The family of this 85-nucleotide RNA sequence from Anabarilius grahami is "Small nucleolar RNA SNORD60".
For this family Rfam cites "Site-specific ribose methylation of preribosomal RNA: a novel function for small nucleolar RNAs" (Kiss-Laszlo et al., Cell, 1996).
RNA sequence: AGCCGCUGAUGACUUCUAAUACACUUCUGACACCUCGUAUGAACGCUGUGUUCAGCAGCUGAUUAUGAAAUGUAGUCUGAGGCUC
Numbered sequence: 001a002g003c004c005g006c007u008g009a010u011g012a013c014u015u016c017u018a019a020u021a022c023a024c025u026u027c028u029g030a031c032a033c034c035u036c037g038u039a040u041g042a043a044c045g046c047u048g049u050g051u052u053c054a055g056c057a058g059c060u061g062a063u064u065a066u067g068a069a070a071u072g073u074a075g076u077c078u079g080a081g082g083c084u085c
Stems, first nucleotide, its partner, number of pairs: 001084004045056004
The source organism's lineage runs through Eukaryota, Eumetazoa, Chordata, Cyprinoidei and Anabarilius. The family is grouped with related families in Rfam's "SNORD60 clan". Its family is annotated with nucleolus and RNA processing in the Gene Ontology.